[Rfam]
RNA: small nucleolar RNA snoR135
Organism: Anisodus acutangulus
RNA sequence: AAUGCAGAGACUGUGUGUCGGCGUUGUGCUGUGAUUGAUGCACAUUUGUUGAAAGUGUUCUCUGCGAUAUUGAAUUUUGAGGAAAAUGGGCAGUUGUGUUUCAUCAAUUUCAUCUUGGAAAUUUCAACAAUCAUUUUCCCCUCAUCU
Number, nucleotide and partner (000 for none) at each position: 001a000002a000003u000004g065005c064006a063007g062008a061009g060010a059011c000012u000013g043014u042015g041016u040017g039018u038019c000020g000021g000022c000023g000024u000025u000026g000027u000028g000029c000030u000031g000032u000033g000034a000035u000036u000037g000038a018039u017040g016041c015042a014043c013044a000045u000046u000047u000048g000049u000050u000051g000052a000053a000054a000055g000056u000057g000058u000059u010060c009061u008062c007063u006064g005065c004066g000067a000068u000069a000070u000071u000072g000073a000074a000075u000076u000077u000078u000079g141080a000081g139082g138083a137084a136085a135086a134087u133088g132089g131090g000091c000092a000093g128094u127095u126096g125097u000098g000099u000100u000101u000102c000103a000104u000105c000106a000107a000108u000109u000110u000111c000112a000113u000114c000115u000116u000117g000118g000119a000120a000121a000122u000123u000124u000125c096126a095127a094128c093129a000130a000131u089132c088133a087134u086135u085136u084137u083138c082139c081140c000141c079142u000143c000144a000145u000146c000147u000